Rfam assigns this 86-nucleotide RNA sequence from Triticum aestivum to the family "Small nucleolar RNA snoR8a". Rfam links the family to the GO terms RNA processing and nucleolus. It scores 56 bits against the family's covariance model.
RNA sequence: GCUGGUGCAGUGAUUAUAAAACAUUCCUCAUACUGAUGGGAGGUCCCUGUGAACGACUCCUAUACACCCAUAGAAUCAGAGCACCA
Numbered sequence: 001g002c003u004g005g006u007g008c009a010g011u012g013a014u015u016a017u018a019a020a021a022c023a024u025u026c027c028u029c030a031u032a033c034u035g036a037u038g039g040g041a042g043g044u045c046c047c048u049g050u051g052a053a054c055g056a057c058u059c060c061u062a063u064a065c066a067c068c069c070a071u072a073g074a075a076u077c078a079g080a081g082c083a084c085c086a
Stems, first nucleotide, its partner, number of pairs: 003086002006083002
On this family, see Brown et al., RNA 2001: "Multiple snoRNA gene clusters from Arabidopsis".